[Rfam]
RNA sequence: CCUGUGGAGCGUUACAGCAAACGUUAGUAGUCAGUCAGUGAUGGCGACAAAAGCGGACGCGUUGAAGCAGGAA
Numbered sequence: 001c002c003u004g005u006g007g008a009g010c011g012u013u014a015c016a017g018c019a020a021a022c023g024u025u026a027g028u029a030g031u032c033a034g035u036c037a038g039u040g041a042u043g044g045c046g047a048c049a050a051a052a053g054c055g056g057a058c059g060c061g062u063u064g065a066a067g068c069a070g071g072a073a
Base pairs, nucleotide, nucleotide: 001071002070003069004068005067009060010059011058012057013056022055023054024053030048031047032046034045035044
The family of this 73-nucleotide sequence is "RAGATH-18 RNA". Pairs were carried over by alignment from the consensus structure, which is taken from published work. Rfam's curators put it in the seed alignment. Actinobacteria, Firmicutes, Fusobacteria, Thermotogae (1 example). The family's RNA type in Rfam is small RNA.